Description:
Shown here is a 306-nucleotide RNA sequence, a member of the family "Nuclear RNase P". Rfam's curators write: Ribonuclease P (RNase P) is a ubiquitous endoribonuclease, found in archaea, bacteria and eukarya as well as chloroplasts and mitochondria.
RNA sequence: AGCUCAUCAGUGGGGCCACGAGCUGAGUGCGUCCUGUCACUCCACUCCCAUGUCCCUUGGGAAGGUCUGAGACUAGGGCCAAAGGCGGCCCUAACAGGGCUCUCCCUGAGCUUCGGGGAGGUGAGUUCCCAGAGAACGGGGCUCCACGCGAGGUCAGACUGGGCAGGAGAUGCCGUGGACCCCGCCCUUCGGGGAGGGGCCCGGCGGAUGCCUCCUUUGCCGGAGCUUGGAACAGACUCACGGCCAGCGAAGUGAGUUCAAUGGCUGAGGUGAGGUACCCCGCAGGGGACCUCAUAACCCAAUUCA
Numbered sequence: 001a002g003c004u005c006a007u008c009a010g011u012g013g014g015g016c017c018a019c020g021a022g023c024u025g026a027g028u029g030c031g032u033c034c035u036g037u038c039a040c041u042c043c044a045c046u047c048c049c050a051u052g053u054c055c056c057u058u059g060g061g062a063a064g065g066u067c068u069g070a071g072a073c074u075a076g077g078g079c080c081a082a083a084g085g086c087g088g089c090c091c092u093a094a095c096a097g098g099g100c101u102c103u104c105c106c107u108g109a110g111c112u113u114c115g116g117g118g119a120g121g122u123g124a125g126u127u128c129c130c131a132g133a134g135a136a137c138g139g140g141g142c143u144c145c146a147c148g149c150g151a152g153g154u155c156a157g158a159c160u161g162g163g164c165a166g167g168a169g170a171u172g173c174c175g176u177g178g179a180c181c182c183c184g185c186c187c188u189u190c191g192g193g194g195a196g197g198g199g200c201c202c203g204g205c206g207g208a209u210g211c212c213u214c215c216u217u218u219g220c221c222g223g224a225g226c227u228u229g230g231a232a233c234a235g236a237c238u239c240a241c242g243g244c245c246a247g248c249g250a251a252g253u254g255a256g257u258u259c260a261a262u263g264g265c266u267g268a269g270g271u272g273a274g275g276u277a278c279c280c281c282g283c284a285g286g287g288g289a290c291c292u293c294a295u296a297a298c299c300c301a302a303u304u305c306a
Stems, first nucleotide, its partner, number of pairs: 003269004008264001012057004025042005030036001068306004077245004087101005102120006121241007141226005270295007